The family of this 97-nucleotide RNA from Aquilegia coerulea is "Small nucleolar RNA R30/Z108". Rfam describes the family as follows. snoR30 is a C/D box small nucleolar RNA which acts as a methylation guide for 18S ribosomal RNA in plants. The match comes from Rfam's covariance-model search (78 bits). A reference for the family is Marker et al. (2002), "Experimental RNomics. Identification of 140 Candidates for Small Non-Messenger RNAs in the Plant Arabidopsis thaliana", Curr Biol.
RNA sequence: AAAUUUUGCUAUGAGGUGAACAAGCUCCCUCUUCUGAAAAGAUGUGUGGAAAAAUGCUGGCAGAAUCGAACCUAAUACAAUCGCCACCACUGAGCAA
Numbered sequence: 001a002a003a004u005u006u007u008g009c010u011a012u013g014a015g016g017u018g019a020a021c022a023a024g025c026u027c028c029c030u031c032u033u034c035u036g037a038a039a040a041g042a043u044g045u046g047u048g049g050a051a052a053a054a055u056g057c058u059g060g061c062a063g064a065a066u067c068g069a070a071c072c073u074a075a076u077a078c079a080a081u082c083g084c085c086a087c088c089a090c091u092g093a094g095c096a097a
Stems, first nucleotide, its partner, number of pairs: 006097004